[Rfam]
RNA: Purine riboswitch aptamer
RNA sequence: CAAAAAAUGAAUAUGUUUUUUCGUAUAAUAGUGGGAAUAGGGCCCACUAGUUUCUACAGGCUACCGUAAAAAGCUUGACUACGAAAAGGAACGCUAUCAAU
Numbered sequence: 001c002a003a004a005a006a007a008u009g010a011a012u013a014u015g016u017u018u019u020u021u022c023g024u025a026u027a028a029u030a031g032u033g034g035g036a037a038u039a040g041g042g043c044c045c046a047c048u049a050g051u052u053u054c055u056a057c058a059g060g061c062u063a064c065c066g067u068a069a070a071a072a073g074c075u076u077g078a079c080u081a082c083g084a085a086a087a088g089g090a091a092c093g094c095u096a097u098c099a100a101u
Stems, first nucleotide, its partner, number of pairs: 018087008029049007057077006